The family of this 112-nucleotide RNA from Mucilaginibacter segetis is "SAM riboswitch aptamer (S box leader)". Pairs were carried over by alignment from the consensus structure, which is taken from published work. The source organism's lineage runs through Bacteria, Pseudomonadati, Sphingobacteriia, Sphingobacteriales and Mucilaginibacter. About the family: The SAM riboswitch is found upstream of a number of genes which code for proteins involved in methionine or cysteine biosynthesis in Gram-positive bacteria. The SAM riboswitch acts at the level of transcription termination control. The predicted structure consists of a complex stem-loop region followed by a single stem loop terminator region. An alternative and mutually exclusive form involves bases in the 3' segment of helix 1 with those in the 5' region of helix 5 to form a structure termed the anti-terminator form. This entry represents the conserved core of the complex structure involving helices 1-4.
[Rfam]
RNA sequence: GGUUUAUAAAGAAGCGGCGAGAGAUCAGGCUCGACAACCCGCUGGCAACCCUCCCCAUUGGGAGAAGGUGCCAAUUCCUGUCCCGGAAAAAGAAUACCGGGGAAUAUAAAUU
Numbered sequence: 001g002g003u004u005u006a007u008a009a010a011g012a013a014g015c016g017g018c019g020a021g022a023g024a025u026c027a028g029g030c031u032c033g034a035c036a037a038c039c040c041g042c043u044g045g046c047a048a049c050c051c052u053c054c055c056c057a058u059u060g061g062g063a064g065a066a067g068g069u070g071c072c073a074a075u076u077c078c079u080g081u082c083c084c085g086g087a088a089a090a091a092g093a094a095u096a097c098c099g100g101g102g103a104a105u106a107u108a109a110a111u112u
Stems, first nucleotide, its partner, number of pairs: 001112008013043005021032003026080004044072004049068002051064004076104001082101005